[Rfam]
A member of the RNA family "MAT2A 3'UTR stem loop A" from Piliocolobus tephrosceles, 65 nucleotides long. On this family, see Parker et al., Genome Res 2011: "New families of human regulatory RNA structures identified by comparative analysis of vertebrate genomes". It scores 58 bits against the family's covariance model. The base pairs follow the family's consensus structure, which is taken from published work. Lineage of the source: Eukaryota > Opisthokonta > Sarcopterygii > Eutheria > Piliocolobus.
Nucleotides: 065
Stems, first nucleotide, its partner, number of pairs: 001065004009058001011056001013054002016051001019047002023043001026034002
Number, partner (000 for none) and nucleotide at each position: 001065g002064c003063c004062u005000u006000u007000u008000c009058c010000a011056c012000c013054c014053a015000u016051a017000c018000u019047u020046g021000u022000u023043g024000g025000c026034g027033u028000a029000g030000g031000c032000a033027a034026c035000a036000g037000a038000g039000a040000a041000a042000g043023c044000u045000u046020c047019g048000a049000g050000c051016u052000c053014u054013g055000a056011g057000g058009g059000a060000a061000a062004g063003g064002g065001c